Clostridiales-3 RNA: a 242-nucleotide sequence.
RNA sequence: UAGUAGUUUGAUGGAUCGAAAGAUGAAGGACGAGAAGUUGGAUGGAAAUCUGGUAAAAGGAUUCGGCAUGUUGCGUAGGGAUAAUCAACCACGGAGGGCGAAGAGAUUGUCCUUAUCCUCACAAGGCUAAAAGAGGAGAUAGUGCUUCUGAAUUAAUUCAGAGGGGCGUCGUGAAACACGUUUAGUGGCUCGUCUGUAACUCCCAAGUAUGCGGGGCGAGGAGGAUAAAGCGCAUACCUACA
Number, nucleotide and partner (000 for none) at each position: 001u000002a000003g000004u000005a000006g031007u030008u029009u028010g000011a000012u000013g000014g000015a024016u023017c022018g000019a000020a000021a000022g017023a016024u015025g000026a000027a000028g009029g008030a007031c006032g000033a000034g000035a000036a000037g000038u000039u000040g000041g000042a000043u000044g000045g000046a000047a000048a000049u000050c000051u000052g000053g000054u000055a000056a000057a000058a000059g000060g000061a000062u000063u000064c000065g000066g000067c000068a000069u000070g000071u000072u000073g000074c000075g000076u000077a000078g000079g000080g000081a000082u000083a000084a000085u000086c000087a000088a000089c000090c173091a172092c171093g000094g114095a113096g112097g111098g110099c109100g108101a107102a000103g000104a000105g000106a000107u101108u100109g099110u098111c097112c096113u095114u094115a000116u137117c136118c135119u134120c133121a000122c000123a000124a000125g000126g000127c000128u000129a000130a000131a000132a000133g120134a119135g118136g117137a116138g170139a169140u168141a000142g167143u166144g000145c164146u163147u162148c161149u160150g159151a158152a000153u000154u000155a000156a000157u000158u151159c150160a149161g148162a147163g146164g145165g000166g143167c142168g140169u139170c138171g092172u091173g090174a000175a000176a000177c187178a186179c185180g000181u000182u000183u000184a000185g179186u178187g177188g000189c000190u000191c000192g000193u000194c000195u000196g000197u000198a000199a000200c000201u000202c000203c000204c000205a000206a000207g237208u236209a235210u234211g233212c232213g231214g000215g000216g000217c000218g000219a000220g000221g000222a000223g000224g000225a000226u000227a000228a000229a000230g000231c213232g212233c211234a210235u209236a208237c207238c000239u000240a000241c000242a000

Overview
Rfam's curators put it in the seed alignment. The family's RNA type in Rfam is small RNA.